[Rfam]
A member of the RNA family "raiA RNA" from a Eubacteriaceae bacterium, 203 nucleotides long.

RNA sequence: GUGUUCCGAGCUGUGGUUGCAAGUCGAGGCCAGUCGCAGGCAAAACGAUCCACGUAAGGUAUUUAAUAAUAUAAUAAUCGAUCAUGGUGCGACCUAGAUGUAAGUCCAGCCGGCAAAAAGCCGAGAGGAGGAAAAGUGAGAUGAUAUCAGGCGAAACUCCCAGCUGGCGGGUGUGGGGGCAAAGACCAGGUCAGUCGGAACGC
Numbered sequence: 001g002u003g004u005u006c007c008g009a010g011c012u013g014u015g016g017u018u019g020c021a022a023g024u025c026g027a028g029g030c031c032a033g034u035c036g037c038a039g040g041c042a043a044a045a046c047g048a049u050c051c052a053c054g055u056a057a058g059g060u061a062u063u064u065a066a067u068a069a070u071a072u073a074a075u076a077a078u079c080g081a082u083c084a085u086g087g088u089g090c091g092a093c094c095u096a097g098a099u100g101u102a103a104g105u106c107c108a109g110c111c112g113g114c115a116a117a118a119a120g121c122c123g124a125g126a127g128g129a130g131g132a133a134a135a136g137u138g139a140g141a142u143g144a145u146a147u148c149a150g151g152c153g154a155a156a157c158u159c160c161c162a163g164c165u166g167g168c169g170g171g172u173g174u175g176g177g178g179g180c181a182a183a184g185a186c187c188a189g190g191u192c193a194g195u196c197g198g199a200a201c202g203c
Stems, first nucleotide, its partner, number of pairs: 001203009011194003014188005027174001029172001030040001033093006049087002054082001058078001060076004085181001106167005111123004127160004136152002143147001